[Rfam]
RNA sequence: GUUCCUUUUUAAGGCUGGCCCAGUGCUCUAAGAGGCUGAUACAGAAGGAUAAAGUUAAGUCUCCACAAAACCCAGGGAAGAGACUGUGAAACUCCUCUUAGAACCUUGUAUGGAGUCAUAGCC
Number, nucleotide and partner (000 for none) at each position: 001g000002u051003u000004c000005c048006u047007u046008u045009u044010u043011a000012a000013g000014g040015c000016u038017g037018g000019c035020c000021c032022a000023g000024u000025g000026c000027u000028c000029u000030a000031a000032g021033a000034g000035g019036c000037u017038g016039a000040u014041a000042c000043a010044g009045a008046a007047g006048g005049a000050u000051a002052a000053a000054g000055u000056u000057a000058a000059g117060u000061c115062u114063c113064c112065a111066c000067a000068a000069a000070a000071c000072c000073c101074a000075g099076g098077g097078a096079a000080g094081a093082g092083a000084c000085u090086g000087u000088g000089a000090a085091a000092c082093u081094c080095c000096u078097c077098u076099u075100a000101g073102a000103a000104c000105c000106u000107u000108g000109u000110a000111u065112g064113g063114a062115g061116u000117c059118a000119u000120a000121g000122c000123c000
This 123-nucleotide sequence from Macaca mulatta belongs to the Rfam family "Small nucleolar RNA SNORA26". The sequence is in the family's curated seed alignment. On this family, see Huttenhofer et al., EMBO J 2001: "RNomics: an experimental approach that identifies 201 candidates for novel, small, non-messenger RNAs in mouse". The snoRNA HBI-6 belong to the H/ACA family of snoRNAs, guiding the pseudouridylation of position U4522 if the 28S rRNA. HBI-6 is the human orthologue of mouse MBI-6 snoRNA.